Shown here is an 88-nucleotide RNA from Ligilactobacillus salivarius, a member of the family "SAM-III riboswitch aptamer (SMK box)". The family's consensus secondary structure is taken from published work. A search with the family's covariance model found it, with a score of 74 bits.
Nucleotides: 088
Base pairs, nucleotide, nucleotide: 016080017079018078019077020076023050024049025048026047028042029041030040031039032038055075056074
Number, partner (000 for none) and nucleotide at each position: 001000a002000a003000u004000a005000g006000u007000u008000a009000c010000a011000a012000u013000c014000c015000a016080u017079u018078c019077c020076c021000g022000a023050a024049a025048g026047g027000a028042u029041u030040c031039g032038u033000u034000u035000u036000a037000a038032a039031c040030g041029a042028a043000g044000a045000u046000g047026c048025c049024u050023u051000g052000u053000a054000a055075c056074c057000a058000a059000a060000u061000u062000a063000c064000u065000u066000a067000u068000a069000a070000u071000a072000a073000u074056g075055g076020g077019g078018g079017a080016a081000u082000u083000a084000a085000a086000u087000u088000g